[Rfam]
RNA: U4 spliceosomal RNA
Organism: Propithecus coquereli
RNA sequence: AUCCUUGUGUAUUGGCAGUAUCGUAGCCGAUGAGGUUUACCCGAGGCGCGAUUAUUGCUAAUUGAAAACUUUGCCCAGUGCCUCACUAUGCUGACUUGUAAUGUAGUCGGCAUUGGCAAUUUUUGAAAGUCCCUACGGGGA
Numbered sequence: 001a002u003c004c005u006u007g008u009g010u011a012u013u014g015g016c017a018g019u020a021u022c023g024u025a026g027c028c029g030a031u032g033a034g035g036u037u038u039a040c041c042c043g044a045g046g047c048g049c050g051a052u053u054a055u056u057g058c059u060a061a062u063u064g065a066a067a068a069c070u071u072u073g074c075c076c077a078g079u080g081c082c083u084c085a086c087u088a089u090g091c092u093g094a095c096u097u098g099u100a101a102u103g104u105a106g107u108c109g110g111c112a113u114u115g116g117c118a119a120u121u122u123u124u125g126a127a128a129g130u131c132c133c134u135a136c137g138g139g140g141a
Stems, first nucleotide, its partner, number of pairs: 020052005026047003034042002086116002088113009130141004